[Rfam]
RNA: Vault RNA
RNA sequence: GUGCUGGCUUUGUCGUGUGGGUACUUCGUAAACCUGUUGGUAACAAUUUGCACUGCUAGCGCUCAUGCAAAGGACGCGGGUUCGAACCCCGCACCCCUUUAGACCCACUGACGCCAUCCAGCACUUUU
Numbered sequence: 001g002u003g004c005u006g007g008c009u010u011u012g013u014c015g016u017g018u019g020g021g022u023a024c025u026u027c028g029u030a031a032a033c034c035u036g037u038u039g040g041u042a043a044c045a046a047u048u049u050g051c052a053c054u055g056c057u058a059g060c061g062c063u064c065a066u067g068c069a070a071a072g073g074a075c076g077c078g079g080g081u082u083c084g085a086a087c088c089c090c091g092c093a094c095c096c097c098u099u100u101a102g103a104c105c106c107a108c109u110g111a112c113g114c115c116a117u118c119c120a121g122c123a124c125u126u127u128u
Stems, first nucleotide, its partner, number of pairs: 002123006012112004017108004025086004